[Rfam]
RNA sequence: UCACCUGAGUUGGUUUUCUGCUACACCAACUAGGUAGACUUAAUCCAGUGGAGUAGAACAUGAGCGAUAAAAUUAUUCACCUGACUGAU
Numbered sequence: 001u002c003a004c005c006u007g008a009g010u011u012g013g014u015u016u017u018c019u020g021c022u023a024c025a026c027c028a029a030c031u032a033g034g035u036a037g038a039c040u041u042a043a044u045c046c047a048g049u050g051g052a053g054u055a056g057a058a059c060a061u062g063a064g065c066g067a068u069a070a071a072a073u074u075a076u077u078c079a080c081c082u083g084a085c086u087g088a089u
Base pairs, nucleotide, nucleotide: 009068010067011066012065014063015062021056022055023054024053026051027050028049031048033046034045073088074087075086077084078083

Background
A member of the RNA family "TrxA 5' UTR thermometer" from Chania multitudinisentens, 89 nucleotides long. Taxonomically the source falls in Chania multitudinisentens (Bacteria, Pseudomonadota, Gammaproteobacteria, Yersiniaceae). Rfam's curators write: Involved in protection against oxidative stress. By type it is an RNA thermoregulator. A reference for the family is Righetti et al. (2016), "Temperature-responsive in vitro RNA structurome of Yersinia pseudotuberculosis", Proc Natl Acad Sci U S A. The match comes from Rfam's covariance-model search (77 bits).